[Rfam]
RNA sequence: UCGGCUCCGGUUCACGCCGUACAUCGGUACGGCGACCCGGCGCA
Numbered sequence: 001u002c003g004g005c006u007c008c009g010g011u012u013c014a015c016g017c018c019g020u021a022c023a024u025c026g027g028u029a030c031g032g033c034g035a036c037c038c039g040g041c042g043c044a
Stems, first nucleotide, its partner, number of pairs: 004043002007040004015034008
RNA: L31-Actinobacteria ribosomal protein leader
Organism: Nocardioides silvaticus